[Rfam]
RNA sequence: GGCCGGGUGACUGAUUAUCUGAAAGAAGCCUAAGUGCAAAUCGGCGAACCUAUGAACAAGAACAGCAUAGUAAGGCCGAACCGCAGGACGAGUCAGCACAACAUGAUAAAGCCUAUUUAGAUCACUAUGGGAUGGUAAAUGCUGUGGUUGAACAGGGAAAGAUUAUGUU
Numbered sequence: 001g002g003c004c005g006g007g008u009g010a011c012u013g014a015u016u017a018u019c020u021g022a023a024a025g026a027a028g029c030c031u032a033a034g035u036g037c038a039a040a041u042c043g044g045c046g047a048a049c050c051u052a053u054g055a056a057c058a059a060g061a062a063c064a065g066c067a068u069a070g071u072a073a074g075g076c077c078g079a080a081c082c083g084c085a086g087g088a089c090g091a092g093u094c095a096g097c098a099c100a101a102c103a104u105g106a107u108a109a110a111g112c113c114u115a116u117u118u119a120g121a122u123c124a125c126u127a128u129g130g131g132a133u134g135g136u137a138a139a140u141g142c143u144g145u146g147g148u149u150g151a152a153c154a155g156g157g158a159a160a161g162a163u164u165a166u167g168u169u
Base pairs, nucleotide, nucleotide: 001016002015004013005012006011028169030167037161041156042155044153047149048148049147050146063144064143065142066141067140068139075136076135077134081130082129083128085126086114087113089111092107093106094105095104